c-di-AMP riboswitch aptamer (ydaO/yuaA leader): a 146-nucleotide RNA from Actinomadura meyerae. The source organism's lineage runs through Bacteria, Bacillati, Streptosporangiales, Thermomonosporaceae and Actinomadura. From the family's description: This family represents a conserved RNA structure found upstream of the ydaO and yuaA genes in Bacillus subtilis and related genes in other bacteria.
RNA sequence: GCCGAGUCCGUGCCGGUCCCAGCGACCGGACGGAGCCGGGGACCCAAUGUUCCAGGGGUGAAUCGGCGCGACCCAGAGCCGCGCCGUAGGGCUGCUUCCAUGCCCGAAUCCGUCAGCUAACCCGGUAGGCGUCAUGGAAGAUAGGA
Number, nucleotide and partner (000 for none) at each position: 001g130002c129003c128004g000005a000006g000007u034008c033009c032010g031011u030012g000013c000014c000015g000016g000017u000018c000019c000020c000021a000022g000023c000024g000025a000026c000027c000028g000029g000030a011031c010032g009033g008034a007035g126036c125037c124038g123039g122040g121041g000042a000043c000044c000045c055046a000047a000048u000049g000050u000051u000052c000053c000054a000055g045056g111057g110058g109059u000060g000061a000062a000063u000064c086065g085066g084067c083068g082069c081070g080071a000072c000073c000074c000075a000076g000077a000078g000079c000080c070081g069082c068083g067084c066085c065086g064087u000088a000089g105090g104091g103092c102093u000094g000095c000096u000097u000098c000099c000100a000101u000102g092103c091104c090105c089106g000107a000108a000109u058110c057111c056112g000113u000114c000115a000116g000117c000118u000119a000120a000121c040122c039123c038124g037125g036126u035127a000128g003129g002130c001131g000132u000133c000134a000135u000136g000137g000138a000139a000140g000141a000142u000143a000144g000145g000146a000
Its family is annotated with cyclic-di-AMP binding and regulation of gene expression in the Gene Ontology.